[Rfam]
RNA sequence: CAUGUCUAUUGUACUUCAUCAGGUGCUCUGGUAAUUGUGGAACCCGGCACAUGUUGAAGUACAUUCAAUGUG
Number, nucleotide and partner (000 for none) at each position: 001c072002a071003u070004g069005u000006c000007u000008a000009u000010u063011g062012u061013a000014c059015u058016u057017c056018a055019u000020c053021a052022g000023g050024u049025g048026c047027u046028c000029u000030g044031g043032u000033a000034a000035u000036u000037g000038u000039g000040g000041a000042a000043c031044c030045c000046g027047g026048c025049a024050c023051a000052u021053g020054u000055u018056g017057a016058a015059g014060u000061a012062c011063a010064u000065u000066c000067a000068a000069u004070g003071u002072g001